[Rfam]
RNA sequence: GGAUCAGGCCUUUCAGGCAUCCUCUCCCAAACUUCUACGGGCUGGUCUUCGGAUCGGCCCUUUCUUUUUGCCCGG
Numbered sequence: 001g002g003a004u005c006a007g008g009c010c011u012u013u014c015a016g017g018c019a020u021c022c023u024c025u026c027c028c029a030a031a032c033u034u035c036u037a038c039g040g041g042c043u044g045g046u047c048u049u050c051g052g053a054u055c056g057g058c059c060c061u062u063u064c065u066u067u068u069u070g071c072c073c074g075g
Stems, first nucleotide, its partner, number of pairs: 008018004039060009